[Rfam]
Small nucleolar RNA SNORD60: a 78-nucleotide sequence. Gene Ontology terms of the family: RNA processing and nucleolus. A reference for the family is Kiss-Laszlo et al. (1996), "Site-specific ribose methylation of preribosomal RNA: a novel function for small nucleolar RNAs", Cell.

RNA sequence: AGCCCGUGAUGAAUUAAUUUCUGACACCUCGUAUGAAAACUGCAUGCGUAGUCUGAUUACAUUAUAAGACUGAGGCUU
Numbered sequence: 001a002g003c004c005c006g007u008g009a010u011g012a013a014u015u016a017a018u019u020u021c022u023g024a025c026a027c028c029u030c031g032u033a034u035g036a037a038a039a040c041u042g043c044a045u046g047c048g049u050a051g052u053c054u055g056a057u058u059a060c061a062u063u064a065u066a067a068g069a070c071u072g073a074g075g076c077u078u
Stems, first nucleotide, its partner, number of pairs: 001077004039052005